[Rfam]
RNA sequence: UAAUUUCCCUGGCAGGUGAGAUAGCAAUGUUGUGUAGGUGGUUUUCCCGGGUGAGCCUCACCCAUUGCACUUUGGGUGUGCUGACCCCUGUGAUUUCCUCAAAUGUGAGGAAACUCAACUGCAUAAUUUGUGGUGGUGGGGACUGUGUUGUACUCUCUCCUG
Numbered sequence: 001u002a003a004u005u006u007c008c009c010u011g012g013c014a015g016g017u018g019a020g021a022u023a024g025c026a027a028u029g030u031u032g033u034g035u036a037g038g039u040g041g042u043u044u045u046c047c048c049g050g051g052u053g054a055g056c057c058u059c060a061c062c063c064a065u066u067g068c069a070c071u072u073u074g075g076g077u078g079u080g081c082u083g084a085c086c087c088c089u090g091u092g093a094u095u096u097c098c099u100c101a102a103a104u105g106u107g108a109g110g111a112a113a114c115u116c117a118a119c120u121g122c123a124u125a126a127u128u129u130g131u132g133g134u135g136g137u138g139g140g141g142a143c144u145g146u147g148u149u150g151u152a153c154u155c156u157c158u159c160c161u162g
Base pairs, nucleotide, nucleotide: 012122013121014120015119016048018046019045020044021043023042025040026039049088050087051086053085055082057080059078060077061076062075063074091117092116093115094113095111096110099107138160139159140158141157142156145153146152147151